RNA sequence: UCUGGGCCUGAUUCAAGUAAUCCAGGAUAGGUUUGUUCAGACAAGCACAGCCUGUUCCGGAUGACUUGGUUCAGGAACGUU
Number, nucleotide and partner (000 for none) at each position: 001u000002c000003u079004g078005g000006g000007c075008c074009u073010g072011a071012u000013u000014c068015a067016a066017g065018u064019a000020a062021u061022c060023c000024a000025g057026g056027a055028u054029a053030g052031g051032u050033u049034u000035g000036u000037u000038c000039a000040g000041a000042c000043a000044a000045g000046c000047a000048c000049a033050g032051c031052c030053u029054g028055u027056u026057c025058c000059g000060g022061a021062u020063g000064a018065c017066u016067u015068g014069g000070u000071u011072c010073a009074g008075g007076a000077a000078c004079g003080u000081u000